The family of this 75-nucleotide sequence from Haloarcula marismortui is "tRNA". The organism belongs to Haloarcula marismortui, within Archaea. The family's consensus secondary structure is taken from published work. The family's RNA type in Rfam is transfer RNA. It scores 56 bits against the family's covariance model.

[Rfam]
RNA sequence: GGGCGCUUAGCUCAGCUUGGACAGAGUGCUUGGCUUCGGACCAAACCGUCGGGGGUUCAAAUCCCUCAGCGCCCG
Numbered sequence: 001g002g003g004c005g006c007u008u009a010g011c012u013c014a015g016c017u018u019g020g021a022c023a024g025a026g027u028g029c030u031u032g033g034c035u036u037c038g039g040a041c042c043a044a045a046c047c048g049u050c051g052g053g054g055g056u057u058c059a060a061a062u063c064c065c066u067c068a069g070c071g072c073c074c075g
Base pairs, nucleotide, nucleotide: 001074002073003072004071005070006069007068010027011026012025013024030044031043032042033041051067052066053065054064055063